[Rfam]
RNA sequence: AAUAAAAUCGGCGAUGGAGUUCGCCAUUGACUGCUGAUUUCAGCUAAUGACUCCUACUUGUUU
Numbered sequence: 001a002a003u004a005a006a007a008u009c010g011g012c013g014a015u016g017g018a019g020u021u022c023g024c025c026a027u028u029g030a031c032u033g034c035u036g037a038u039u040u041c042a043g044c045u046a047a048u049g050a051c052u053c054c055u056a057c058u059u060g061u062u063u
Stems, first nucleotide, its partner, number of pairs: 010025004016054006033044004
RNA: Fluoride riboswitch aptamer (crcB RNA motif)